RNA sequence: GGAUGUGAGGGUGAUCUGGCUGCAACAUCUGUCACCCCCUUGAUCGCCAGGGUUGAUUCAGCUGAUCUGGCUGGCUAGGUGGGUGUCCCCUUCCUCCCUCACUGCUCCAUGUGUGUCCCUGCCGAAGCUGCAUGCCUGGUUGAAGAGGGCAACCUUCCCUGAUAGAGACAUACCAUUCAUUGUAAAGGGUAUACGGUAGCUGCACUGCCUUGAUAGAACCUCCAAACAAGCUCAAGGUCCAUUUGUAGGAGAACAUAGGCUAGUCAAGCUUCCAAGACUGCAGACACAUCCAAGAGAGGCACUGCAUGGGGUAGUCUGCAAUCCUAU
Number, nucleotide and partner (000 for none) at each position: 001g108002g107003a106004u000005g102006u101007g100008a099009g098010g097011g096012u000013g093014a092015u000016c000017u000018g090019g089020c000021u000022g000023c000024a000025a086026c085027a084028u083029c082030u081031g080032u079033c078034a000035c074036c073037c070038c069039c000040u000041u000042g067043a066044u065045c064046g062047c061048c000049a000050g000051g000052g000053u000054u000055g000056a000057u000058u000059c000060a000061g047062c046063u000064g045065a044066u043067c042068u000069g038070g037071c000072u000073g036074g035075c000076u000077a000078g033079g032080u031081g030082g029083g028084u027085g026086u025087c000088c000089c019090c018091u000092u014093c013094c000095u000096c011097c010098c009099u008100c007101a006102c005103u000104g000105c000106u003107c002108c001109a000110u000111g000112u000113g000114u000115g000116u000117c000118c000119c167120u166121g000122c139123c138124g137125a000126a000127g135128c134129u000130g000131c000132a000133u000134g128135c127136c000137u124138g123139g122140u162141u161142g160143a000144a000145g000146a000147g158148g157149g156150c000151a000152a000153c000154c000155u000156u149157c148158c147159c000160u142161g141162a140163u000164a000165g000166a120167g119168a000169c000170a000171u000172a000173c000174c000175a000176u000177u000178c000179a000180u000181u000182g000183u000184a000185a000186a000187g000188g000189g000190u000191a000192u000193a000194c000195g000196g000197u000198a000199g269200c268201u267202g000203c000204a000205c263206u262207g000208c000209c259210u258211u257212g256213a000214u000215a000216g000217a000218a000219c000220c251221u250222c249223c248224a000225a000226a246227c245228a244229a243230g242231c000232u000233c000234a000235a000236g000237g000238u000239c000240c000241a000242u230243u229244u228245g227246u226247a000248g223249g222250a221251g220252a000253a000254c000255a000256u212257a211258g210259g209260c000261u000262a206263g205264u000265c000266a000267a201268g200269c199270u000271u000272c000273c000274a000275a000276g000277a000278c000279u000280g000281c000282a000283g000284a000285c000286a000287c000288a000289u000290c000291c000292a327293a000294g325295a000296g322297a000298g000299g319300c318301a315302c314303u313304g312305c311306a000307u000308g000309g000310g000311g305312u304313a303314g302315u301316c000317u000318g300319c299320a000321a000322u296323c000324c000325u294326a000327u292